[Rfam]
RNA sequence: AUAAUGGUACUCCUGUCCAGCCACAGCCCUGCUUAAGAUCAGAGUAGUCCAUAACAUUUGGAAACCAUCUGGUUGCAGGAUCACGCAAUGGGGGCAGCUCGGAGAGAUCCUCGGAGGGGUGAGAUUCCCGUGG
Numbered sequence: 001a002u003a004a005u006g007g008u009a010c011u012c013c014u015g016u017c018c019a020g021c022c023a024c025a026g027c028c029c030u031g032c033u034u035a036a037g038a039u040c041a042g043a044g045u046a047g048u049c050c051a052u053a054a055c056a057u058u059u060g061g062a063a064a065c066c067a068u069c070u071g072g073u074u075g076c077a078g079g080a081u082c083a084c085g086c087a088a089u090g091g092g093g094g095c096a097g098c099u100c101g102g103a104g105a106g107a108u109c110c111u112c113g114g115a116g117g118g119g120u121g122a123g124a125u126u127c128c129c130g131u132g133g
Base pairs, nucleotide, nucleotide: 012130013097014096015095016094017093018092098116099115100114102112103111104110117129118128119127

Notes: The record is a 133-nucleotide RNA, which matches "pemK RNA" in Rfam. By type it is a cis-regulatory element.